Shown here is a 139-nucleotide RNA from Actinomadura macrotermitis, a member of the family "c-di-AMP riboswitch aptamer (ydaO/yuaA leader)".
RNA sequence: UCCGGCCGGACGCCGAAUCUCCUGCGGGAGAGCCGGGGACCCAGGUUCCUCCGGGGUGAAUCCGCUGCUCGUCAGCGGUAGGGCCAUCUCCUGGCCCGAACCCGUCAGCUAACCCGGUAGGCGGAAAAGGAGAGGUGGA
Numbered sequence: 001u002c003c004g005g006c007c008g009g010a011c012g013c014c015g016a017a018u019c020u021c022c023u024g025c026g027g028g029a030g031a032g033c034c035g036g037g038g039a040c041c042c043a044g045g046u047u048c049c050u051c052c053g054g055g056g057u058g059a060a061u062c063c064g065c066u067g068c069u070c071g072u073c074a075g076c077g078g079u080a081g082g083g084c085c086a087u088c089u090c091c092u093g094g095c096c097c098g099a100a101c102c103c104g105u106c107a108g109c110u111a112a113c114c115c116g117g118u119a120g121g122c123g124g125a126a127a128a129g130g131a132g133a134g135g136u137g138g139a
Stems, first nucleotide, its partner, number of pairs: 011123004018031003032118006042053001054103003062078004081097004